[Rfam]
RNA sequence: GGCGAUUGCCCUCUUGGGGCGUUUCCUCCCUAGACUUCGGGCCGCUCGCGAGGGCGGCCUUUUUUUCUGCCUUGG
Numbered sequence: 001g002g003c004g005a006u007u008g009c010c011c012u013c014u015u016g017g018g019g020c021g022u023u024u025c026c027u028c029c030c031u032a033g034a035c036u037u038c039g040g041g042c043c044g045c046u047c048g049c050g051a052g053g054g055c056g057g058c059c060u061u062u063u064u065u066u067c068u069g070c071c072u073u074g075g
Base pairs, nucleotide, nucleotide: 008020009019010018011017039060040059041058042057043056044055045054046053047052
RNA: Makes More Granules Regulator RNA (mmgR)
Organism: Methylobacterium sp. 4-46